[Rfam]
RNA: U12 minor spliceosomal RNA
RNA sequence: AUGCCUUAAACUGAUGAGUAAGGAAAAUAACGACGCGGGGUGACGCCCGUGUCCUCGCCUAGAUUUGCGAGAUCAAUUUUUGAACGGGUACAGGUCCGCCUGUUUAGGUGACUCACCUACUUUGUGAGAUGCCUUGCGGGACAUGGAUCUGCCCG
Dot-bracket structure: ...(((((..........)))))........((((((((......))))))))(((((........))))).............(((((..(((((((..(....(((((.(((((.......))))).)))))....)....))))))))))))